RNA sequence: AUCGGCCUUGCUGUGAGCGUCUGAGGAUGUUCGCGGGGCCGCAAGUCGCUUGAGACUUUUGACCACGGAUGUACUGGCACUGGAAUUGAAGUGAUGUGAGGAAGGUCGGCCCGGCCUUUUUUGUU
Numbered sequence: 001a002u003c004g005g006c007c008u009u010g011c012u013g014u015g016a017g018c019g020u021c022u023g024a025g026g027a028u029g030u031u032c033g034c035g036g037g038g039c040c041g042c043a044a045g046u047c048g049c050u051u052g053a054g055a056c057u058u059u060u061g062a063c064c065a066c067g068g069a070u071g072u073a074c075u076g077g078c079a080c081u082g083g084a085a086u087u088g089a090a091g092u093g094a095u096g097u098g099a100g101g102a103a104g105g106u107c108g109g110c111c112c113g114g115c116c117u118u119u120u121u122u123g124u125u
Base pairs, nucleotide, nucleotide: 003041004040005039006038007037008036009035015032016031017030018029019028045095046094047093048092049091050090051089056083057082060079061078063077064076065075096124097123098122099121100120101119102118103117104116105115106114107113108112
The family of this 125-nucleotide RNA from Rhizobium giardinii is "Alphaproteobacterial sRNA ar35". NCBI's taxonomy places the organism under Bacteria, Pseudomonadati, Alphaproteobacteria, Hyphomicrobiales, Rhizobium. The pairing is the family consensus, mapped onto this sequence.